Description: Rfam assigns this 81-nucleotide RNA sequence from Callosobruchus maculatus to the family "mir-31 microRNA precursor family". Clan: mir-31 microRNA precursor family. The organism belongs to Callosobruchus, within Eukaryota. A reference for the family is Chiang et al. (2010), "Mammalian microRNAs: experimental evaluation of novel and previously annotated genes", Genes Dev. Rfam links the family to the GO terms gene silencing by miRNA and RISC complex. A search with the family's covariance model found it, with a score of 65 bits.
RNA sequence: GAAGGUCAAGAAGGCAAGAUGUCGGCAUAGCUGAUUGUGACUGAUAUACGGCUGUGUCUCAUCGAGCCAGCUUGUCGCUUC
Numbered sequence: 001g002a003a004g005g006u007c008a009a010g011a012a013g014g015c016a017a018g019a020u021g022u023c024g025g026c027a028u029a030g031c032u033g034a035u036u037g038u039g040a041c042u043g044a045u046a047u048a049c050g051g052c053u054g055u056g057u058c059u060c061a062u063c064g065a066g067c068c069a070g071c072u073u074g075u076c077g078c079u080u081c
Base pairs, nucleotide, nucleotide: 005076007074008073009072010071013068014067015066018063019062020061021060024058025057026056027055028054029053030052031051